RNA sequence: UAUUAGGUUGGUGCAAACGUAAUCGCGGUUUUUGCCAUUAAAACUAAUUAAAAGUAAUGGCAAAAACCGCGAUUACAUUUGCACCAACCUAAUA
Numbered sequence: 001u002a003u004u005a006g007g008u009u010g011g012u013g014c015a016a017a018c019g020u021a022a023u024c025g026c027g028g029u030u031u032u033u034g035c036c037a038u039u040a041a042a043a044c045u046a047a048u049u050a051a052a053a054g055u056a057a058u059g060g061c062a063a064a065a066a067c068c069g070c071g072a073u074u075a076c077a078u079u080u081g082c083a084c085c086a087a088c089c090u091a092a093u094a
Base pairs, nucleotide, nucleotide: 001094002093003092004091005090006089007088008087009086010085011084012083013082014081015080016079017078019076020075021074022073023072024071025070026069027068028067029066030065031064032063033062034061035060036059037058038057039056040055